[Rfam]
The record is a 343-nucleotide RNA from Qipengyuania oceanensis, which matches "Alphaproteobacteria transfer-messenger RNA" in Rfam. Clan: tRNA clan. Lineage of the source: Bacteria > Pseudomonadati > Sphingomonadales > Erythrobacteraceae > Qipengyuania. It scores 234 bits against the family's covariance model. Rfam's curators write: Bacterial tmRNA, also known as 10Sa RNA or SsrA, is named for its dual tRNA and mRNA-like properties. Its role is to liberate the mRNA from a stalled ribosome.
RNA sequence: ACACUUCACAUUAACGCGAGCGCGCCUAUAUAGGGUCUGCUCGCUUCGGCGGGCUAUGGCGAUAAAUUGCGGUGUGCAAUAGGCACAGCGGACCCGGGGGCAGUACCCGGCGGCUCCACCACAAAGGGCGGUUUUCCGCCAUUUGUGAAGGGGCCGAACCAGGAUCGACGUGUGUUGAAAGACACUGUUUUCGCCCGGGCUGAGUAACCCGUUCAAGGCUCAAAACACACAAGUGCCAACGAUAACGAAGCACUCGCAAUCGCUGCGUAACCUGACGGCCUAACGGCCUGAUCUUACAAAGCUAAAGCGCGGUUGGACCCACCGGGCAACAGAAGCGGAUUCC
Numbered sequence: 001a002c003a004c005u006u007c008a009c010a011u012u013a014a015c016g017c018g019a020g021c022g023c024g025c026c027u028a029u030a031u032a033g034g035g036u037c038u039g040c041u042c043g044c045u046u047c048g049g050c051g052g053g054c055u056a057u058g059g060c061g062a063u064a065a066a067u068u069g070c071g072g073u074g075u076g077c078a079a080u081a082g083g084c085a086c087a088g089c090g091g092a093c094c095c096g097g098g099g100g101c102a103g104u105a106c107c108c109g110g111c112g113g114c115u116c117c118a119c120c121a122c123a124a125a126g127g128g129c130g131g132u133u134u135u136c137c138g139c140c141a142u143u144u145g146u147g148a149a150g151g152g153g154c155c156g157a158a159c160c161a162g163g164a165u166c167g168a169c170g171u172g173u174g175u176u177g178a179a180a181g182a183c184a185c186u187g188u189u190u191u192c193g194c195c196c197g198g199g200c201u202g203a204g205u206a207a208c209c210c211g212u213u214c215a216a217g218g219c220u221c222a223a224a225a226c227a228c229a230c231a232a233g234u235g236c237c238a239a240c241g242a243u244a245a246c247g248a249a250g251c252a253c254u255c256g257c258a259a260u261c262g263c264u265g266c267g268u269a270a271c272c273u274g275a276c277g278g279c280c281u282a283a284c285g286g287c288c289u290g291a292u293c294u295u296a297c298a299a300a301g302c303u304a305a306a307g308c309g310c311g312g313u314u315g316g317a318c319c320c321a322c323c324g325g326g327c328a329a330c331a332g333a334a335g336c337g338g339a340u341u342c343c
Stems, first nucleotide, its partner, number of pairs: 039054005058195005069188007084174003088171003094110005111156007196211004201222003310324004315341002318338002